[Rfam]
RNA sequence: UGAGGCCUCCGACCUGGCACAACAUCCUGCAGCGGUGUUGUGUGACCUGCAGUGUCAGUCGCCGGCCUCG
Dot-bracket structure: (((((((..((((.......((((((.......))))))....(((.......))).))))..)))))))